[Rfam]
The family of this 444-nucleotide part of an RNA from an uncultured bacterium is "Bacterial large subunit ribosomal RNA". The base pairs follow the family's consensus structure, which is taken from published work.
RNA sequence: CUCCCCGAAAUAGUUUUAGGACUAGCCUCGAGUAAAUAUUUGAUGAGGGUAGAGUUACUGAAUAGGAUAGGGGGUUUACCGACCUACCAAACCUAACCAAACUCCGAAUAUCAUCAAAUGUAUCUCGGGAGUAAGACAGCGAGGGCUAAGCUCCGUUGUCUAAAGGGAAACAGCCCAGACCAUCGUCUAAGGUCCCUAAUAAUAAGCUAAGUGGUAAAGGAAGUGAGAUCACUUUAACAGCCAGGAUGUUGGCUUAGAGGCAGCCAUCAUUUAAAGAGUGCGUAAUAGCUCACUGGUCGAGUGGUUUUGCGCCGAAAAUGAUCGGGGCUCAAGCUUAUAACCGAAGACAUGGAUUCUUAUCGCAAGAUAAGAGUGGUAGGGGAGCGUAGUGUCGCACGUUGAAGGCAUACCGAGAGGAAUGCUGGAGUUGACACUAGUGAUUCU
Numbered sequence: 001c002u003c004c005c006c007g008a009a010a011u012a013g014u015u016u017u018a019g020g021a022c023u024a025g026c027c028u029c030g031a032g033u034a035a036a037u038a039u040u041u042g043a044u045g046a047g048g049g050u051a052g053a054g055u056u057a058c059u060g061a062a063u064a065g066g067a068u069a070g071g072g073g074g075u076u077u078a079c080c081g082a083c084c085u086a087c088c089a090a091a092c093c094u095a096a097c098c099a100a101a102c103u104c105c106g107a108a109u110a111u112c113a114u115c116a117a118a119u120g121u122a123u124c125u126c127g128g129g130a131g132u133a134a135g136a137c138a139g140c141g142a143g144g145g146c147u148a149a150g151c152u153c154c155g156u157u158g159u160c161u162a163a164a165g166g167g168a169a170a171c172a173g174c175c176c177a178g179a180c181c182a183u184c185g186u187c188u189a190a191g192g193u194c195c196c197u198a199a200u201a202a203u204a205a206g207c208u209a210a211g212u213g214g215u216a217a218a219g220g221a222a223g224u225g226a227g228a229u230c231a232c233u234u235u236a237a238c239a240g241c242c243a244g245g246a247u248g249u250u251g252g253c254u255u256a257g258a259g260g261c262a263g264c265c266a267u268c269a270u271u272u273a274a275a276g277a278g279u280g281c282g283u284a285a286u287a288g289c290u291c292a293c294u295g296g297u298c299g300a301g302u303g304g305u306u307u308u309g310c311g312c313c314g315a316a317a318a319u320g321a322u323c324g325g326g327g328c329u330c331a332a333g334c335u336u337a338u339a340a341c342c343g344a345a346g347a348c349a350u351g352g353a354u355u356c357u358u359a360u361c362g363c364a365a366g367a368u369a370a371g372a373g374u375g376g377u378a379g380g381g382g383a384g385c386g387u388a389g390u391g392u393c394g395c396a397c398g399u400u401g402a403a404g405g406c407a408u409a410c411c412g413a414g415a416g417g418a419a420u421g422c423u424g425g426a427g428u429u430g431a432c433a434c435u436a437g438u439g440a441u442u443c444u
Base pairs, nucleotide, nucleotide: 001384002383003382004381005380006379011024012023013022014021015020026131027129028128029127030126031125032124037122038119039118040117041116042115043114044113045112046111052105053103054102059099060098063095064094065093066092070088071087072085073084074083075082076081135160136159137158138157139156140155141154143152144151165176166175167174180352181351182350183349185348186347187346191342192341193340200339202338203337204336205335206334207333219313220312223310224309225308226307227306228305229304230303231302232301240297241296242295243294244293246270247269248268251265252264253263271275276291280289281288353374354373355372356371357370358369359368360367385439387436388435389434390433391432392431393430396428397427404423405422406421407420408419410417411416